[Rfam]
Rfam assigns this 86-nucleotide RNA from Branchiostoma belcheri to the family "mir-2060 microRNA precursor family". The family has 7 seed sequences and 3,696 matches in Rfam 15.1. The family's consensus secondary structure was predicted with RNAalifold.

RNA sequence: ACAUGGGUGGUGUUCAGCACCAAGGACAGGCACAUUUGCUUGUGUGUGUGUAUUGUGUUCAGCACCAAGGACAGACAUGUUUGCCA
Numbered sequence: 001a002c003a004u005g006g007g008u009g010g011u012g013u014u015c016a017g018c019a020c021c022a023a024g025g026a027c028a029g030g031c032a033c034a035u036u037u038g039c040u041u042g043u044g045u046g047u048g049u050g051u052a053u054u055g056u057g058u059u060c061a062g063c064a065c066c067a068a069g070g071a072c073a074g075a076c077a078u079g080u081u082u083g084c085c086a
Stems, first nucleotide, its partner, number of pairs: 008067007016059005022053001024047001026043007